[Rfam]
RNA sequence: CAAGGCCGGGAUCGCCAUCCGUCAGCGCGUCGCGCUCACGGGUGCUGUUUCG
Numbered sequence: 001c002a003a004g005g006c007c008g009g010g011a012u013c014g015c016c017a018u019c020c021g022u023c024a025g026c027g028c029g030u031c032g033c034g035c036u037c038a039c040g041g042g043u044g045c046u047g048u049u050u051c052g
Stems, first nucleotide, its partner, number of pairs: 016044007025035004
Dot-bracket structure: ...............(((((((..((((...))))..)))))))........
RNA: ffh sRNA
Organism: Rhodobacteraceae bacterium PARR1